[Rfam]
RNA sequence: CAGACCCGGGAUCGCCCCCCGUCAGCGAGGUUUCGCCCACGGGGGCGAAACGC
Numbered sequence: 001c002a003g004a005c006c007c008g009g010g011a012u013c014g015c016c017c018c019c020c021g022u023c024a025g026c027g028a029g030g031u032u033u034c035g036c037c038c039a040c041g042g043g044g045g046c047g048a049a050a051c052g053c
Base pairs, nucleotide, nucleotide: 016045017044018043019042020041021040022039025036026035027034028033
The record is a 53-nucleotide sequence from Rhodovulum sp. ES.010, which matches "ffh sRNA" in Rfam. Taxonomically the source falls in Rhodovulum (Bacteria, Pseudomonadati, Alphaproteobacteria, Rhodobacterales). The base pairs follow the family's consensus structure, which is taken from published work. The literature on the family includes a 2009 paper in BMC Genomics by Meyer et al., "Identification of candidate structured RNAs in the marine organism 'Candidatus Pelagibacter ubique'". The match comes from Rfam's covariance-model search (60 bits).